[Rfam]
Nucleotides: 116
Stems, first nucleotide, its partner, number of pairs: 007037003011033002014030003042074004047069005084110010
Number, partner (000 for none) and nucleotide at each position: 001000c002000c003000u004000u005000a006000u007037c008036g009035c010000a011033g012032c013000c014030g015029c016028c017000u018000u019000u020000c021000c022000c023000c024000c025000a026000u027000c028016g029015g030014c031000c032012g033011c034000u035009g036008c037007g038000a039000a040000c041000u042074g043073c044072c045071c046000g047069g048068c049067g050066a051065c052000a053000u054000u055000c056000c057000u058000c059000c060000u061000c062000c063000c064000a065051g066050u067049c068048g069047c070000a071045g072044g073043g074042c075000a076000u077000c078000g079000a080000u081000u082000a083000u084110c085109g086108c087107c088106c089105a090104c091103c092102g093101g094000u095000c096000c097000u098000c099000c100000c101093c102092c103091g104090g105089u106088g107087g108086g109085c110084g111000u112000u113000u114000u115000c116000g
Shown here is a 116-nucleotide RNA from Aureimonas sp. Leaf460, a member of the family "Alphaproteobacterial ar14". The source organism's lineage runs through Bacteria, Pseudomonadati, Hyphomicrobiales, Aurantimonadaceae and Aureimonas. Smr14C2 was renamed NfeR1 (Nodule Formation Efficiency RNA) highly expressed in salt stress and during the symbiotic interaction on legume roots. The pairing is the family consensus, mapped onto this sequence. It is annotated as a small RNA. A reference for the family is del Val et al. (2012), "A survey of sRNA families in alpha-proteobacteria", RNA Biol.